RNA sequence: AAUAGAAAAAGGCAAACUAUCUGAAAAGGUAGGACGCAAAGCCUAGGGUCUAAGGUCACGAUACUAUGAUCGCCUGGUUGCCAAG
Numbered sequence: 001a002a003u004a005g006a007a008a009a010a011g012g013c014a015a016a017c018u019a020u021c022u023g024a025a026a027a028g029g030u031a032g033g034a035c036g037c038a039a040a041g042c043c044u045a046g047g048g049u050c051u052a053a054g055g056u057c058a059c060g061a062u063a064c065u066a067u068g069a070u071c072g073c074c075u076g077g078u079u080g081c082c083a084a085g
Stems, first nucleotide, its partner, number of pairs: 012037002017032006040079004045075003048070003055064002
RNA: c-di-GMP-I riboswitch aptamer